This 199-nucleotide RNA from Miscanthus lutarioriparius belongs to the Rfam family "MIR159 microRNA precursor family".

RNA sequence: CCGGAUGGAAGAGAGCGUCCUUCAGUCCACUCAGGGGCGGUGCUAGGGUCGAAUUAGCUGCCGACUCAUUCACCCACAUGCAAAGCAUACGGCCAUGGAAAUGAGCUAGCUUUGCAGAUGAGUGAAUGAAGCGGGAGGUAAAAGCUUCGAUCUCGCACCAUCUUUGCUUGGACUGAAGGGUGCUCCCUCCUCCCUCCUU
Dot-bracket structure: ............((((((((..(((((((......(.....................((.(((...((((....(............................................)....))))...))).))........................)......)))))))..))))))))..............
Numbered sequence: 001c002c003g004g005a006u007g008g009a010a011g012a013g014a015g016c017g018u019c020c021u022u023c024a025g026u027c028c029a030c031u032c033a034g035g036g037g038c039g040g041u042g043c044u045a046g047g048g049u050c051g052a053a054u055u056a057g058c059u060g061c062c063g064a065c066u067c068a069u070u071c072a073c074c075c076a077c078a079u080g081c082a083a084a085g086c087a088u089a090c091g092g093c094c095a096u097g098g099a100a101a102u103g104a105g106c107u108a109g110c111u112u113u114g115c116a117g118a119u120g121a122g123u124g125a126a127u128g129a130a131g132c133g134g135g136a137g138g139u140a141a142a143a144g145c146u147u148c149g150a151u152c153u154c155g156c157a158c159c160a161u162c163u164u165u166g167c168u169u170g171g172a173c174u175g176a177a178g179g180g181u182g183c184u185c186c187c188u189c190c191u192c193c194c195u196c197c198u199u
Stems, first nucleotide, its partner, number of pairs: 013185008023175007036162001058137002061134003067128004075120001
The base pairs follow the family's consensus structure, which was predicted with WAR. The literature on the family includes a 2004 paper in Mol Cell by Jones-Rhoades and Bartel, "Computational identification of plant microRNAs and their targets, including a stress-induced miRNA". Taxonomically the source falls in Miscanthus (Eukaryota, Streptophytina, Petrosaviidae, Andropogonodae).